[Rfam]
RNA: SAM riboswitch aptamer (S box leader)
RNA sequence: CUCUUAUCAAGAGCAGGUGGAGGGACUAGCCCUAUGAUACCCGGCAACCGACAGUUCUUUGUAUCGCAAAGACUGCACGGUGCUAAAUCUUGCGGAAGCUGUAAUGGCUUCUGAGAGAUGAGAG
Numbered sequence: 001c002u003c004u005u006a007u008c009a010a011g012a013g014c015a016g017g018u019g020g021a022g023g024g025a026c027u028a029g030c031c032c033u034a035u036g037a038u039a040c041c042c043g044g045c046a047a048c049c050g051a052c053a054g055u056u057c058u059u060u061g062u063a064u065c066g067c068a069a070a071g072a073c074u075g076c077a078c079g080g081u082g083c084u085a086a087a088u089c090u091u092g093c094g095g096a097a098g099c100u101g102u103a104a105u106g107g108c109u110u111c112u113g114a115g116a117g118a119u120g121a122g123a124g
Base pairs, nucleotide, nucleotide: 001124002123003122004121005120006119007118008117013042016041017040018039022032023031024030026092028090029089043084044083045082046081048080049079052075053074054073055072056071088116093113094112095111096110097109098108099107100106